[Rfam]
RNA sequence: CGAGAGAUUCAUGGCUAAGGAACUAGGCAAAAUAGACCUGUAACUUCGGGAGAAAGGUCGCCUCCUGAUUGGGAGGCCGCAGUGAAAAGGUCCAGGCGACUGUUUAUCAAAAACACAGGACUCUGCUAAAUUGAAAGAUGAUGUAUAGGGUCUGACACCUGCCCGGUGCUGGAAGGUUAAGAGGAGAUGUUAGAGGUAACUCGAAGCAUUGAAUUGAAGCCCCAGUAAACGGCGGCCGUAACUAUAACGGUCCUAAGGUAGCGAAAUUCCUUGUCGGGUAAGUUCCGACCUGCACGAAUGGUGUAACGAUCUGGACACUGUCUCAGCCAUGAGCUCG
Numbered sequence: 001c002g003a004g005a006g007a008u009u010c011a012u013g014g015c016u017a018a019g020g021a022a023c024u025a026g027g028c029a030a031a032a033u034a035g036a037c038c039u040g041u042a043a044c045u046u047c048g049g050g051a052g053a054a055a056g057g058u059c060g061c062c063u064c065c066u067g068a069u070u071g072g073g074a075g076g077c078c079g080c081a082g083u084g085a086a087a088a089g090g091u092c093c094a095g096g097c098g099a100c101u102g103u104u105u106a107u108c109a110a111a112a113a114c115a116c117a118g119g120a121c122u123c124u125g126c127u128a129a130a131u132u133g134a135a136a137g138a139u140g141a142u143g144u145a146u147a148g149g150g151u152c153u154g155a156c157a158c159c160u161g162c163c164c165g166g167u168g169c170u171g172g173a174a175g176g177u178u179a180a181g182a183g184g185a186g187a188u189g190u191u192a193g194a195g196g197u198a199a200c201u202c203g204a205a206g207c208a209u210u211g212a213a214u215u216g217a218a219g220c221c222c223c224a225g226u227a228a229a230c231g232g233c234g235g236c237c238g239u240a241a242c243u244a245u246a247a248c249g250g251u252c253c254u255a256a257g258g259u260a261g262c263g264a265a266a267u268u269c270c271u272u273g274u275c276g277g278g279u280a281a282g283u284u285c286c287g288a289c290c291u292g293c294a295c296g297a298a299u300g301g302u303g304u305a306a307c308g309a310u311c312u313g314g315a316c317a318c319u320g321u322c323u324c325a326g327c328c329a330u331g332a333g334c335u336c337g
Stems, first nucleotide, its partner, number of pairs: 001337004009332008018323003035059005044049001060077007078082001090316007097308002101115003118153008126143001130139003156303004161233003166230002168226005175221003181215002186210005193202002234252006253257001263290001273289006
Bacterial large subunit ribosomal RNA: a 337-nucleotide part of an RNA from Capnocytophaga canis. It scores 2703 bits against the family's covariance model.